[Rfam]
RNA: FMN riboswitch aptamer (RFN element)
Organism: Paracoccus tegillarcae
RNA sequence: CGUCGUUCUCAGGGCGGGGCGAAAUUCCCCACCGGCGGUUACAGCCCGCGAGCGCCUUGGCGAUGGUCAAGGGUCAGCAGAUCUGGUGCAAUUCCAGGGCCGACGGUCACAGUCCGGAUGAAAGAGAACGGGA
Dot-bracket structure: ..((((((((......(((.......))).[[((((((.....[[))))..((.......................))...(((((.......)))))]])).(((.....]]))).......))))))))..
Numbered sequence: 001c002g003u004c005g006u007u008c009u010c011a012g013g014g015c016g017g018g019g020c021g022a023a024a025u026u027c028c029c030c031a032c033c034g035g036c037g038g039u040u041a042c043a044g045c046c047c048g049c050g051a052g053c054g055c056c057u058u059g060g061c062g063a064u065g066g067u068c069a070a071g072g073g074u075c076a077g078c079a080g081a082u083c084u085g086g087u088g089c090a091a092u093u094c095c096a097g098g099g100c101c102g103a104c105g106g107u108c109a110c111a112g113u114c115c116g117g118a119u120g121a122a123a124g125a126g127a128a129c130g131g132g133a
Stems, first nucleotide, its partner, number of pairs: 003131008017029003031113002033102002035049004044100002052078002082098005104116003